[Rfam]
RNA sequence: GAGACACCCUUAUGGGGCAAAGCUUGCUUCAGUGAGGCUUUGGUGCUCACUGAGUUUGCCUCUUGAGUGUGUUACU
Numbered sequence: 001g002a003g004a005c006a007c008c009c010u011u012a013u014g015g016g017g018c019a020a021a022g023c024u025u026g027c028u029u030c031a032g033u034g035a036g037g038c039u040u041u042g043g044u045g046c047u048c049a050c051u052g053a054g055u056u057u058g059c060c061u062c063u064u065g066a067g068u069g070u071g072u073u074a075c076u
Base pairs, nucleotide, nucleotide: 001075003073004072005071006070007069009067010066011065012064014062015061016060017059018058019057021056022055023054029053030052031051032050033049034048035047036046037044038043
RNA: mir-9229 microRNA precursor family
Organism: Pipistrellus kuhlii